[Rfam]
RNA sequence: CUUGUCUGAGGGCACGGGAGGAUCUUAUUAGUCAGUGUGUCAGCUGGGCCCUGACAAGCAGCCCGAGGAGGCUCUGAACCGAGCCUGGAGCUCCACGACUGCCGCUUGCACCUCCUGCGCCUGGUUUUGCGAGGGGUUUCCCGCCUCGCACCCCUACCUCUGGACUUGCCUCUCCUCGCUCCACGUGUGCAGGGAGCCAGCACUUAGGCCAGAGCGAGCCUGGGAGCCGCCAGCCGUGAAGGCAUCAUGGAGACCGAUUCGCAUGG
Numbered sequence: 001c002u003u004g005u006c007u008g009a010g011g012g013c014a015c016g017g018g019a020g021g022a023u024c025u026u027a028u029u030a031g032u033c034a035g036u037g038u039g040u041c042a043g044c045u046g047g048g049c050c051c052u053g054a055c056a057a058g059c060a061g062c063c064c065g066a067g068g069a070g071g072c073u074c075u076g077a078a079c080c081g082a083g084c085c086u087g088g089a090g091c092u093c094c095a096c097g098a099c100u101g102c103c104g105c106u107u108g109c110a111c112c113u114c115c116u117g118c119g120c121c122u123g124g125u126u127u128u129g130c131g132a133g134g135g136g137u138u139u140c141c142c143g144c145c146u147c148g149c150a151c152c153c154c155u156a157c158c159u160c161u162g163g164a165c166u167u168g169c170c171u172c173u174c175c176u177c178g179c180u181c182c183a184c185g186u187g188u189g190c191a192g193g194g195a196g197c198c199a200g201c202a203c204u205u206a207g208g209c210c211a212g213a214g215c216g217a218g219c220c221u222g223g224g225a226g227c228c229g230c231c232a233g234c235c236g237u238g239a240a241g242g243c244a245u246c247a248u249g250g251a252g253a254c255c256g257a258u259u260c261g262c263a264u265g266g
Stems, first nucleotide, its partner, number of pairs: 001012003014029001016026003031049003068139003072136001112135003116131001166200003170196004178190002210233001212231001214230003

A member of the RNA family "HIF-1 alpha IRES" from Tupaia belangeri, 266 nucleotides long. This family represents the hypoxia-inducible factor 1-alpha internal ribosome entry site.